Mammalian CPEB3 ribozyme: a 77-nucleotide RNA from Crocodylus porosus. Pairs were carried over by alignment from the consensus structure, which is taken from published work.
RNA sequence: GGUUGCAAGUUCGAGGCCAUAGUAGGAGCACUCAUGGCUUAACCCUGUCAGAUUCCAACGAAUCUGAGAAUUCUGCU
Numbered sequence: 001g002g003u004u005g006c007a008a009g010u011u012c013g014a015g016g017c018c019a020u021a022g023u024a025g026g027a028g029c030a031c032u033c034a035u036g037g038c039u040u041a042a043c044c045c046u047g048u049c050a051g052a053u054u055c056c057a058a059c060g061a062a063u064c065u066g067a068g069a070a071u072u073c074u075g076c077u
Stems, first nucleotide, its partner, number of pairs: 013045001015044002021077007028040001049066007